[Rfam]
RNA sequence: GGAGGCGUCCGCGUCCUGGUGGUCGUCCCGGUCUUCAAAACCGGCGAAGCUCAGUAUCUGGGCUUGGCGGGUUCGAUUCCCGUCCGCCUCC
Numbered sequence: 001g002g003a004g005g006c007g008u009c010c011g012c013g014u015c016c017u018g019g020u021g022g023u024c025g026u027c028c029c030g031g032u033c034u035u036c037a038a039a040a041c042c043g044g045c046g047a048a049g050c051u052c053a054g055u056a057u058c059u060g061g062g063c064u065u066g067g068c069g070g071g072u073u074c075g076a077u078u079c080c081c082g083u084c085c086g087c088c089u090c091c
Stems, first nucleotide, its partner, number of pairs: 001091007011026003015022002028044005047065005068082004

A member of the RNA family "Selenocysteine transfer RNA" from Brevibacterium jeotgali, 91 nucleotides long.
The family is grouped with related families in Rfam's "tRNA clan".
The base pairs follow the family's consensus structure, which is taken from published work.
NCBI's taxonomy places the organism under Bacteria, Actinomycetota, Micrococcales, Brevibacteriaceae, Brevibacterium.
For this family Rfam cites "Eukaryotic selenocysteine tRNA has the 9/4 secondary structure" (Mizutani and Goto, FEBS Lett, 2000).